Overview
tRNA: a 72-nucleotide RNA from Bacillus subtilis. Lineage of the source: Bacteria > Bacillati > Bacillota > Bacilli > Bacillus. It is annotated as a transfer RNA.
RNA sequence: UGGGCUAUAGCCAAGCGGUAAGGCAACGGACUUUGACUCCGUCAUGCGUUGGUUCGAAUCCAGCUAGCCCAG
Dot-bracket structure: (((((((..(((.........))).(((((.......))))).....(((((.......)))))))))))).